About this RNA
Rfam assigns this 90-nucleotide sequence from Brucella sp. BO2 to the family "Brucella sRNA 119". A reference for the family is Saadeh et al. (2015), "Transcriptome-Wide Identification of Hfq-Associated RNAs in Brucella suis by Deep Sequencing", J Bacteriol. Taxonomically the source falls in Brucella (Bacteria, Pseudomonadota, Alphaproteobacteria, Brucellaceae).
RNA sequence: GGCUCUAUUGACCUCCGAGCCAGUCACCUAACGUCAUGAAUUGGGCCCGCUCCCAUUGAAGCGGGUCAUUUUUUUGAAAAUAUUCCCUGA
Numbered sequence: 001g002g003c004u005c006u007a008u009u010g011a012c013c014u015c016c017g018a019g020c021c022a023g024u025c026a027c028c029u030a031a032c033g034u035c036a037u038g039a040a041u042u043g044g045g046c047c048c049g050c051u052c053c054c055a056u057u058g059a060a061g062c063g064g065g066u067c068a069u070u071u072u073u074u075u076g077a078a079a080a081u082a083u084u085c086c087c088u089g090a
Stems, first nucleotide, its partner, number of pairs: 001021005034077003038073003044067008